The record is a 377-nucleotide part of an RNA from Candidatus Macondimonas diazotrophica, which matches "Bacterial large subunit ribosomal RNA" in Rfam. Gene Ontology terms of the family: ribosome and structural constituent of ribosome. The match comes from Rfam's covariance-model search (2916 bits).
RNA sequence: GAUAAUGCGGGUGAAAAACCCGCACGCCGUAAACCCAAGGUUUCCUGCGCAACGUUAAUCGGCGCAGGGUGAGUCGGACCCUAAGGCGAGGCCGAAAGGCGUAGUUGAUGGGAAACAGGUUAAUAUUCCUGUACCGAUGAUUGCUGCGAUGGGGUGACGGAGAAGGCUAGGCCGGCCGGGUGUUGGAUGUCCCGGUUUAAGCAAGUAGGAAGAUCCCUUAGGCAAAUCCGGGGGGUCAAUUCCGAGAUGUGAUGACGAGUCCCUUAGGGGGCGAAGUGGUUGAUGCCAUGCUUCCAGGAAAAGCCUCUAAGCUUCAGGCAAUCAUCGCCCGUACCGCAAACCGACACAGGUGGGUGAGGAGAGAAUCCUAAGGCGCU
Numbered sequence: 001g002a003u004a005a006u007g008c009g010g011g012u013g014a015a016a017a018a019c020c021c022g023c024a025c026g027c028c029g030u031a032a033a034c035c036c037a038a039g040g041u042u043u044c045c046u047g048c049g050c051a052a053c054g055u056u057a058a059u060c061g062g063c064g065c066a067g068g069g070u071g072a073g074u075c076g077g078a079c080c081c082u083a084a085g086g087c088g089a090g091g092c093c094g095a096a097a098g099g100c101g102u103a104g105u106u107g108a109u110g111g112g113a114a115a116c117a118g119g120u121u122a123a124u125a126u127u128c129c130u131g132u133a134c135c136g137a138u139g140a141u142u143g144c145u146g147c148g149a150u151g152g153g154g155u156g157a158c159g160g161a162g163a164a165g166g167c168u169a170g171g172c173c174g175g176c177c178g179g180g181u182g183u184u185g186g187a188u189g190u191c192c193c194g195g196u197u198u199a200a201g202c203a204a205g206u207a208g209g210a211a212g213a214u215c216c217c218u219u220a221g222g223c224a225a226a227u228c229c230g231g232g233g234g235g236u237c238a239a240u241u242c243c244g245a246g247a248u249g250u251g252a253u254g255a256c257g258a259g260u261c262c263c264u265u266a267g268g269g270g271g272c273g274a275a276g277u278g279g280u281u282g283a284u285g286c287c288a289u290g291c292u293u294c295c296a297g298g299a300a301a302a303g304c305c306u307c308u309a310a311g312c313u314u315c316a317g318g319c320a321a322u323c324a325u326c327g328c329c330c331g332u333a334c335c336g337c338a339a340a341c342c343g344a345c346a347c348a349g350g351u352g353g354g355u356g357a358g359g360a361g362a363g364a365a366u367c368c369u370a371a372g373g374c375g376c377u
Stems, first nucleotide, its partner, number of pairs: 006024006025375004033355004039335002044068006053061002075331003080111002085106003089102001091100003115132005135327011146312002151307005159294004165287003170281005175196006197255002201250003208243003213236007221229002259272005341350002357369004
Dot-bracket structure: .....((((((.......))))))((((....((((..((...((((((...((.....)).))))))......(((..((...(((.(.(((....))).).)))...))...(((((........)))))..(((((((((((((...(((((...((((..(((..(((((((((((..........))))))((..(((....(((..(((((((.((.....)))))))))....)))....)))...))...(((((....)))))....)))))...)))...))))........)))))...))....))))))))))).)))..)).....((......)).)))).((((.....))))..))))..